[Rfam]
This 145-nucleotide sequence from Gossypium australe belongs to the Rfam family "MIR7502 microRNA precursor family".
Gene Ontology terms of the family: miRNA-mediated post-transcriptional gene silencing and RISC complex.
A search with the family's covariance model found it, with a score of 116 bits.

RNA sequence: UGUUAAAAAUUCCAUUCAUUUCUACUGUUAAAAACUGACAUGGUUGAUAGUAUAACCAGAAAUUUAAAUGUGGCGUGUCACGUGUACCUCAUUCUGACGUAUAAGGACCGGUUUUUAACAGUAGAAAUAGACGUAACUUUUAACA
Numbered sequence: 001u002g003u004u005a006a007a008a009a010u011u012c013c014a015u016u017c018a019u020u021u022c023u024a025c026u027g028u029u030a031a032a033a034a035c036u037g038a039c040a041u042g043g044u045u046g047a048u049a050g051u052a053u054a055a056c057c058a059g060a061a062a063u064u065u066a067a068a069u070g071u072g073g074c075g076u077g078u079c080a081c082g083u084g085u086a087c088c089u090c091a092u093u094c095u096g097a098c099g100u101a102u103a104a105g106g107a108c109c110g111g112u113u114u115u116u117a118a119c120a121g122u123a124g125a126a127a128u129a130g131a132c133g134u135a136a137c138u139u140u141u142a143a144c145a
Stems, first nucleotide, its partner, number of pairs: 002144007010136002013133001015131002018128009028118006